[Rfam]
RNA sequence: UAGAAAUGAUGAAUUAAGACUCUGAGAAACCAUGACGAGUUUAUUUUUAGAUAGUCAAGUACUGAUCUAG
Numbered sequence: 001u002a003g004a005a006a007u008g009a010u011g012a013a014u015u016a017a018g019a020c021u022c023u024g025a026g027a028a029a030c031c032a033u034g035a036c037g038a039g040u041u042u043a044u045u046u047u048u049a050g051a052u053a054g055u056c057a058a059g060u061a062c063u064g065a066u067c068u069a070g
Stems, first nucleotide, its partner, number of pairs: 001069004
Rfam assigns this 70-nucleotide RNA sequence from Lepisosteus oculatus to the family "Small nucleolar RNA SNORD20". For this family Rfam cites "U20, a novel small nucleolar RNA, is encoded in an intron of the nucleolin gene in mammals" (Nicoloso et al., Mol Cell Biol, 1994). It is annotated as a C/D-box small nucleolar RNA. The pairing is the family consensus, mapped onto this sequence. From the family's description: U20 is a C/D box small nucleolar RNA that is encoded in intron 11 of the nucleolin gene in human, mouse and rat. A search with the family's covariance model found it, with a score of 45 bits.